The record is a 169-nucleotide RNA from Saliterribacillus persicus, which matches "glmS glucosamine-6-phosphate activated ribozyme aptamer" in Rfam. The literature on the family includes a 2006 paper in Biochemistry by Hampel and Tinsley, "Evidence for preorganization of the glmS ribozyme ligand binding pocket". Rfam classes the family as a riboswitch. Pairs were carried over by alignment from the consensus structure, which is taken from published work. The organism belongs to Saliterribacillus, within Bacteria.
[Rfam]
RNA sequence: AAGUAACAAAAAGCGCCUGGGCUAUUGAACCGACAAAACAAUAGCUGACGAGGAGGAGGAGUAUCGAGUUUGAUCGGCGGAUACCUCCCAGCUGAAACAUCUCAGCUGUAGAGCCUUUACUCAAAACAAAGAGGCGACUCUUUGCACAAGAUUAAAGGUAAGAUGUAAA
Numbered sequence: 001a002a003g004u005a006a007c008a009a010a011a012a013g014c015g016c017c018u019g020g021g022c023u024a025u026u027g028a029a030c031c032g033a034c035a036a037a038a039c040a041a042u043a044g045c046u047g048a049c050g051a052g053g054a055g056g057a058g059g060a061g062u063a064u065c066g067a068g069u070u071u072g073a074u075c076g077g078c079g080g081a082u083a084c085c086u087c088c089c090a091g092c093u094g095a096a097a098c099a100u101c102u103c104a105g106c107u108g109u110a111g112a113g114c115c116u117u118u119a120c121u122c123a124a125a126a127c128a129a130a131g132a133g134g135c136g137a138c139u140c141u142u143u144g145c146a147c148a149a150g151a152u153u154a155a156a157g158g159u160a161a162g163a164u165g166u167a168a169a
Base pairs, nucleotide, nucleotide: 020046021045022044023043024042025041026040027039055088056087057086058085059084064077065076066075067074089108090107091106092105093104094103113159114158115157116156117155118154119153127144128143129142130141131140132139133138